A member of the RNA family "ffh sRNA" from Paroceanicella profunda, 52 nucleotides long.
Taxonomically the source falls in Paroceanicella (Bacteria, Pseudomonadati, Rhodobacterales, Paracoccaceae).
Pairs were carried over by alignment from the consensus structure, which is taken from published work.
The family's RNA type in Rfam is small RNA.
RNA sequence: GCAGCCCGGGAUCGCCGUCGGUCAGCGCGUUGCGCCCACCGGCGCACUACUG
Dot-bracket structure: ...............(((((((..((((...))))..)))))))........